[Rfam]
RNA: UnaL2 LINE 3' element
RNA sequence: CUUUUUCUUAUUUGUAAAUCGCUUUGGAUAAAAGUGUCUACUAAAUGACUAAAA
Numbered sequence: 001c002u003u004u005u006u007c008u009u010a011u012u013u014g015u016a017a018a019u020c021g022c023u024u025u026g027g028a029u030a031a032a033a034g035u036g037u038c039u040a041c042u043a044a045a046u047g048a049c050u051a052a053a054a
Base pairs, nucleotide, nucleotide: 013043014041015040016039020036021035022034023033024032025031